RNA sequence: GGGAUGUUGGGCAUGCCCAACACGAUCUGUCAACAUUCUAUGUUAUAUUGACGGGUCGUGAUGGGCACUCUCAAUGUCCA
Numbered sequence: 001g002g003g004a005u006g007u008u009g010g011g012c013a014u015g016c017c018c019a020a021c022a023c024g025a026u027c028u029g030u031c032a033a034c035a036u037u038c039u040a041u042g043u044u045a046u047a048u049u050g051a052c053g054g055g056u057c058g059u060g061a062u063g064g065g066c067a068c069u070c071u072c073a074a075u076g077u078c079c080a
Stems, first nucleotide, its partner, number of pairs: 003078009014067006021060013035046002